Rfam assigns this 79-nucleotide RNA from Suricata suricatta to the family "mir-1902 microRNA precursor family". The source organism's lineage runs through Eukaryota, Chordata, Craniata, Eutheria and Suricata. Rfam links the family to the GO terms RISC complex and miRNA-mediated post-transcriptional gene silencing. The family's consensus secondary structure was predicted with RNAalifold.
RNA sequence: GUUUAUUUGGGGAAUGUUUGCUGUAUAAUUGGUUUUAAUGAAAUGCUUAGAGAUGCAGUAGGUAUGACUUUGAGUAGAU
Numbered sequence: 001g002u003u004u005a006u007u008u009g010g011g012g013a014a015u016g017u018u019u020g021c022u023g024u025a026u027a028a029u030u031g032g033u034u035u036u037a038a039u040g041a042a043a044u045g046c047u048u049a050g051a052g053a054u055g056c057a058g059u060a061g062g063u064a065u066g067a068c069u070u071u072g073a074g075u076a077g078a079u
Stems, first nucleotide, its partner, number of pairs: 001079012014065013030049003034045001